Shown here is a 147-nucleotide sequence from Penicillium cosmopolitanum, a member of the family "A. fumigatus sRNA Afu_254". It scores 91 bits against the family's covariance model. Rfam classes the family as a small RNA.
RNA sequence: UUCCAAACAAAGCCUUCUCAAAUCUUUCGUGGUUUCAUUCCAUAUCCCAAUCCAUCCAUCCAACAUGUCUCCCUGCUCGUGCAACUGCUGCUCCGGCAACUGCAACUCUUGCUCCUGCUCUAGCUGCACCGUAUGUUAUCCAUUUUC
Numbered sequence: 001u002u003c004c005a006a007a008c009a010a011a012g013c014c015u016u017c018u019c020a021a022a023u024c025u026u027u028c029g030u031g032g033u034u035u036c037a038u039u040c041c042a043u044a045u046c047c048c049a050a051u052c053c054a055u056c057c058a059u060c061c062a063a064c065a066u067g068u069c070u071c072c073c074u075g076c077u078c079g080u081g082c083a084a085c086u087g088c089u090g091c092u093c094c095g096g097c098a099a100c101u102g103c104a105a106c107u108c109u110u111g112c113u114c115c116u117g118c119u120c121u122a123g124c125u126g127c128a129c130c131g132u133a134u135g136u137u138a139u140c141c142a143u144u145u146u147c
Base pairs, nucleotide, nucleotide: 074098075097076096077095081091082090083089102127103126104125111118112117